[Rfam]
RNA sequence: CCGUUAAGUGAUGAUGUGACAGACAAAGUGUUGCGUCAUCACGUCUUGUCAUAGACACGUCAUCACUCUCAAUUAUGUGGCAUUGACAUGUCAAUGAUCGGGUGUGAUGAUGUGUCACUUCAUUUGUCAUGUCAUCACUUAACGAAA
Number, nucleotide and partner (000 for none) at each position: 001c000002c144003g143004u142005u141006a140007a139008g138009u137010g136011a135012u134013g133014a132015u131016g130017u129018g128019a127020c126021a125022g124023a123024c000025a000026a120027a119028g118029u117030g116031u000032u114033g113034c112035g111036u110037c109038a108039u107040c106041a105042c104043g103044u102045c101046u100047u000048g098049u097050c096051a095052u094053a000054g092055a091056c090057a089058c000059g076060u075061c000062a073063u072064c000065a000066c000067u000068c000069u000070c000071a000072a063073u062074u000075a060076u059077g000078u000079g000080g000081c000082a000083u000084u000085g000086a000087c000088a000089u057090g056091u055092c054093a000094a052095u051096g050097a049098u048099c000100g046101g045102g044103u043104g042105u041106g040107a039108u038109g037110a036111u035112g034113u033114g032115u000116c030117a029118c028119u027120u026121c000122a000123u023124u022125u021126g020127u019128c018129a017130u016131g015132u014133c013134a012135u011136c010137a009138c008139u007140u006141a005142a004143c003144g002145a000146a000147a000
Rfam assigns this 147-nucleotide RNA from Glycine max to the family "MIR4371 microRNA precursor family". Rfam links the family to the GO terms RISC complex and miRNA-mediated post-transcriptional gene silencing. The family is grouped with related families in Rfam's "MIR4387 microRNA precursor clan". A search with the family's covariance model found it, with a score of 120 bits.